RNA sequence: UAAGGAGCAAUAACCCUCUUGAUAAAACAAGAAAGAGUUAAUUGCUCCUUAAUUU
Numbered sequence: 001u002a003a004g005g006a007g008c009a010a011u012a013a014c015c016c017u018c019u020u021g022a023u024a025a026a027a028c029a030a031g032a033a034a035g036a037g038u039u040a041a042u043u044g045c046u047c048c049u050u051a052a053u054u055u
Stems, first nucleotide, its partner, number of pairs: 001051011012039003017032005
RNA: Plastid-psbA-3 3UTR RNA
Organism: Blomia tropicalis